[Rfam]
RNA sequence: AAAUCAUGUUGAGGGCAACUUCUUAGCAAGCCCUUGUACCUCUCCCAAGCUUCAUAUAAGGACUCUCUUAUCUCUUAUUGAAAGUUAGCAACCUUCUUUUUGAGCGU
Numbered sequence: 001a002a003a004u005c006a007u008g009u010u011g012a013g014g015g016c017a018a019c020u021u022c023u024u025a026g027c028a029a030g031c032c033c034u035u036g037u038a039c040c041u042c043u044c045c046c047a048a049g050c051u052u053c054a055u056a057u058a059a060g061g062a063c064u065c066u067c068u069u070a071u072c073u074c075u076u077a078u079u080g081a082a083a084g085u086u087a088g089c090a091a092c093c094u095u096c097u098u099u100u101u102g103a104g105c106g107u
Stems, first nucleotide, its partner, number of pairs: 001107001004104001005102002058073001060071001

Annotation
The family of this 107-nucleotide RNA from Lactuca saligna is "Plant small nucleolar RNA R71". Taxonomically the source falls in Lactuca (Eukaryota, Embryophyta, Tracheophyta, asterids). The match comes from Rfam's covariance-model search (62 bits). Rfam links the family to the GO terms RNA processing and nucleolus.